[Rfam]
RNA sequence: GUGGGACGGGGAUGCUCUACCGGCGGAAACGCCGGAUAAACUGGCCCAGGAACCGCACCGGGCGCAGCCCCCGGGCGGUCCCGCCCAUGAUCAGCCAGCAGCCGCUGCAACCCCAGGGAG
Numbered sequence: 001g002u003g004g005g006a007c008g009g010g011g012a013u014g015c016u017c018u019a020c021c022g023g024c025g026g027a028a029a030c031g032c033c034g035g036a037u038a039a040a041c042u043g044g045c046c047c048a049g050g051a052a053c054c055g056c057a058c059c060g061g062g063c064g065c066a067g068c069c070c071c072c073g074g075g076c077g078g079u080c081c082c083g084c085c086c087a088u089g090a091u092c093a094g095c096c097a098g099c100a101g102c103c104g105c106u107g108c109a110a111c112c113c114c115a116g117g118g119a120g
Stems, first nucleotide, its partner, number of pairs: 049082002052079003059073004096107004
RNA: Streptomyces-metK RNA